[Rfam]
RNA: Cyano-1 RNA
RNA sequence: UGAGGAGUGAAGAGAAGAAGCCUCUGGGGUCGAAACACGGACAGACGCCCAGGGGUUUUUUCAU
Numbered sequence: 001u002g003a004g005g006a007g008u009g010a011a012g013a014g015a016a017g018a019a020g021c022c023u024c025u026g027g028g029g030u031c032g033a034a035a036c037a038c039g040g041a042c043a044g045a046c047g048c049c050c051a052g053g054g055g056u057u058u059u060u061u062c063a064u
Base pairs, nucleotide, nucleotide: 008063014062015061016060017059018058021055022054026050027049028048029046030045031044